[Rfam]
Nucleotides: 073
Stems, first nucleotide, its partner, number of pairs: 009041001011040004017073002020070002023067001024036003045062007
Number, partner (000 for none) and nucleotide at each position: 001000a002000c003000a004000g005000g006000c007000u008000u009041g010000a011040g012039a013038c014037c015000a016000g017073a018072g019000a020070a021069g022000u023067a024036g025035c026034g027000c028000u029000c030000a031000c032000a033000g034026u035025g036024c037014g038013g039012u040011u041009u042000u043000g044000u045062c046061a047060g048059a049058u050057u051056c052000c053000a054000g055000u056051g057050a058049a059048u060047u061046u062045g063000c064000a065000a066000a067023u068000u069021c070020u071000g072018c073017u

About this RNA: Shown here is a 73-nucleotide RNA from Alligator sinensis, a member of the family "Mammalian CPEB3 ribozyme". The family's consensus secondary structure is taken from published work. Taxonomically the source falls in Alligator (Eukaryota, Sarcopterygii, Dipnotetrapodomorpha, Crocodylia).